Lysine riboswitch aptamer: a 205-nucleotide RNA sequence from Paenibacillus crassostreae. The base pairs follow the family's consensus structure, which is taken from published work. Gene Ontology term of the family: lysine biosynthetic process.
[Rfam]
RNA sequence: AGAUGAGGUAGAGGUCGCGAAGAGCGAUGAGUAGAUUGUGAAGAGGCGUUAGAAGCCGCUGGUUGAUUCGCAAUUGAAAGGCACCCUUCGCCGAAGUAUACAGGCUGCUUCUUCUAUUAGCCAAGUAUGCUGGGUCUGUUUUCCGAAUAGGGACAGAACUGUCAUGGUUUCCUUCCAUAGGACAUCAUGUUGGGCUAUCUUUCAU
Dot-bracket structure: .....((((((.....((((((.(.(.......((((((((..........................))))))))......).).))))))...(((((((.......................)))))))((.((((((((.......)))))))).))..((((((...............)))))).....)))))).....

It scores 93 bits against the family's covariance model. Lineage of the source: Bacteria > Bacillota > Bacilli > Caryophanales > Paenibacillus.